A member of the RNA family "GA-cis RNA", 90 nucleotides long. It is one of the family's seed sequences.

RNA sequence: UUGAGUCGGAAUCAAUAUGACGGAGUCAUAUUUCGGAAUGAUUCCGACGAUCUGCCCCACUCGACGGAGGAGAGAGGGGCGUUUCAAAAG
Numbered sequence: 001u002u003g004a005g006u007c008g009g010a011a012u013c014a015a016u017a018u019g020a021c022g023g024a025g026u027c028a029u030a031u032u033u034c035g036g037a038a039u040g041a042u043u044c045c046g047a048c049g050a051u052c053u054g055c056c057c058c059a060c061u062c063g064a065c066g067g068a069g070g071a072g073a074g075a076g077g078g079g080c081g082u083u084u085c086a087a088a089a090g
Stems, first nucleotide, its partner, number of pairs: 008045006015031006054080005061073002